Shown here is a 103-nucleotide sequence from Cocos nucifera, a member of the family "Small nucleolar RNA snoR97". Rfam links the family to the GO terms nucleolus and RNA processing.

RNA sequence: CAUUCCCAAUUGGCAUGUAGGCUGAAGAACUCAGAAAUUGAGUGUUGUCAUCAGCUUCGUCUCUCAUCAAAUGAGAUUGGAGUUAAAUAACAGCACAACAUUU
Numbered sequence: 001c002a003u004u005c006c007c008a009a010u011u012g013g014c015a016u017g018u019a020g021g022c023u024g025a026a027g028a029a030c031u032c033a034g035a036a037a038u039u040g041a042g043u044g045u046u047g048u049c050a051u052c053a054g055c056u057u058c059g060u061c062u063c064u065c066a067u068c069a070a071a072u073g074a075g076a077u078u079g080g081a082g083u084u085a086a087a088u089a090a091c092a093g094c095a096c097a098a099c100a101u102u103u
Stems, first nucleotide, its partner, number of pairs: 042096006053084006060076004
A reference for the family is Marker et al. (2002), "Experimental RNomics: identification of 140 candidates for small non-messenger RNAs in the plant Arabidopsis thaliana", Curr Biol.